[Rfam]
RNA sequence: GAGAAUAGAUGAGUUCUGGUGGGCUCGCCAGUCUUCAAAACUGUGUUGUCGUGCUAAUACCACGAUGGGUGGGUUCGAUUCCCACAUAUUCUC
Dot-bracket structure: ((((((((..((((((....))))))..((((.......))))...(((((...........)))))..((((.......))))).)))))))
Numbered sequence: 001g002a003g004a005a006u007a008g009a010u011g012a013g014u015u016c017u018g019g020u021g022g023g024c025u026c027g028c029c030a031g032u033c034u035u036c037a038a039a040a041c042u043g044u045g046u047u048g049u050c051g052u053g054c055u056a057a058u059a060c061c062a063c064g065a066u067g068g069g070u071g072g073g074u075u076c077g078a079u080u081c082c083c084a085c086a087u088a089u090u091c092u093c
Stems, first nucleotide, its partner, number of pairs: 001093007008085001011026006029043004047067005070084004